SAM riboswitch aptamer (S box leader): a 98-nucleotide sequence from Pedobacter cryophilus.
[Rfam]
Nucleotides: 098
Stems, first nucleotide, its partner, number of pairs: 001098008013043005021032003026076004044068004049064002051060003072090001078087003
Number, partner (000 for none) and nucleotide at each position: 001098g002097a003096u004095u005094u006093a007092u008091a009000a010000a011000g012000a013043a014042g015041u016040g017039g018000c019000g020000a021032g022031a023030g024000a025000u026076u027075a028074g029073g030023c031022u032021c033000u034000a035000a036000g037000a038000c039017c040016c041015a042014c043013u044068g045067g046066c047065a048000a049064c050063c051060c052059u053058u054000u055000a056000a057000a058053a059052a060051g061000a062000a063050g064049g065047u066046g067045c068044c069000a070000a071000u072090u073029c074028c075027u076026a077000g078087c079086c080085c081000g082000c083000a084000a085080g086079g087078g088000a089000a090072a091008u092007a093006u094005a095004a096003a097002u098001u
Lineage of the source: Bacteria > Pseudomonadati > Sphingobacteriia > Sphingobacteriales > Pedobacter.